[Rfam]
RNA sequence: CGAGCGCUGUUGCCCCAGGGACUGUCUGACCUGGGAAUGGGGACAAAUGAACAUCAAUCUCAGGUUUGUCAGCCCGUGGGGCAGUAGUUGGAG
Numbered sequence: 001c002g003a004g005c006g007c008u009g010u011u012g013c014c015c016c017a018g019g020g021a022c023u024g025u026c027u028g029a030c031c032u033g034g035g036a037a038u039g040g041g042g043a044c045a046a047a048u049g050a051a052c053a054u055c056a057a058u059c060u061c062a063g064g065u066u067u068g069u070c071a072g073c074c075c076g077u078g079g080g081g082c083a084g085u086a087g088u089u090g091g092a093g
Stems, first nucleotide, its partner, number of pairs: 005090002008086009019075002022072003026068001028066009038056002